[Rfam]
RNA sequence: CCGGCUCCGGUUCACGUCCUGUCCCGCGACACCACCGCACCCGUCGGUGGCGCGCGGGAGUCCCACCAGGGCGACCCGGCGGCC
Numbered sequence: 001c002c003g004g005c006u007c008c009g010g011u012u013c014a015c016g017u018c019c020u021g022u023c024c025c026g027c028g029a030c031a032c033c034a035c036c037g038c039a040c041c042c043g044u045c046g047g048u049g050g051c052g053c054g055c056g057g058g059a060g061u062c063c064c065a066c067c068a069g070g071g072c073g074a075c076c077c078g079g080c081g082g083c084c
Stems, first nucleotide, its partner, number of pairs: 003084003007079004015073007
The family of this 84-nucleotide sequence is "L31-Actinobacteria ribosomal protein leader".